[Rfam]
RNA sequence: AUCGUUUGAGGUGGGAAAGGUUCCCCACGCGCCCUUGUGGUUAAAAGAGAUGCAGGAUACGCCGCCCUGCCAAACGAU
Numbered sequence: 001a002u003c004g005u006u007u008g009a010g011g012u013g014g015g016a017a018a019g020g021u022u023c024c025c026c027a028c029g030c031g032c033c034c035u036u037g038u039g040g041u042u043a044a045a046a047g048a049g050a051u052g053c054a055g056g057a058u059a060c061g062c063c064g065c066c067c068u069g070c071c072a073a074a075c076g077a078u
Stems, first nucleotide, its partner, number of pairs: 001078008011028005019063003030047001031041003052070005
Notes: The family of this 78-nucleotide RNA sequence from Alteribacillus persepolensis is "skipping-rope RNA". By type it is a small RNA.